Shown here is a 76-nucleotide RNA from Astyanax mexicanus, a member of the family "mir-193 microRNA precursor family".

RNA sequence: UGUCAGUGGCGGGAUCUUGGGGGCGAGAUGAGUUUUGAUUUCAAUCCAACUGGCCCGCAAAGUCCCGCUUCUGGUG
Numbered sequence: 001u002g003u004c005a006g007u008g009g010c011g012g013g014a015u016c017u018u019g020g021g022g023g024c025g026a027g028a029u030g031a032g033u034u035u036u037g038a039u040u041u042c043a044a045u046c047c048a049a050c051u052g053g054c055c056c057g058c059a060a061a062g063u064c065c066c067g068c069u070u071c072u073g074g075u076g
Stems, first nucleotide, its partner, number of pairs: 003074004008069001010067004015062001017060003021056004026051002029048002
On this family, see Brameier, BMC Res Notes 2010: "Genome-wide comparative analysis of microRNAs in three non-human primates".
Pairs were carried over by alignment from the consensus structure, which was predicted with RNAalifold.
Rfam links the family to the GO terms RISC complex and miRNA-mediated post-transcriptional gene silencing.
Lineage of the source: Eukaryota > Chordata > Craniata > Teleostei > Astyanax.